The record is a 93-nucleotide sequence from Flavobacterium caeni, which matches "Flavo-1 RNA" in Rfam. Pairs were carried over by alignment from the consensus structure, which is taken from published work. Rfam 15.1 lists 7,497 matches to the family in 411 species.

RNA sequence: CGAUAGUUUGCGUUAGGGAUUGAAGCGGAAAUCCUUUUUGCGUCGCAGCGAAGCGAAGACGCGAAAAGAUUGCAGCGGAAAGCCCGGCCGCGA
Dot-bracket structure: ...............(((.((...((...((((..((((((((...............)))))))).))))...))...)).)))........
Numbered sequence: 001c002g003a004u005a006g007u008u009u010g011c012g013u014u015a016g017g018g019a020u021u022g023a024a025g026c027g028g029a030a031a032u033c034c035u036u037u038u039u040g041c042g043u044c045g046c047a048g049c050g051a052a053g054c055g056a057a058g059a060c061g062c063g064a065a066a067a068g069a070u071u072g073c074a075g076c077g078g079a080a081a082g083c084c085c086g087g088c089c090g091c092g093a
Stems, first nucleotide, its partner, number of pairs: 016085003020081002025076002030071004036066008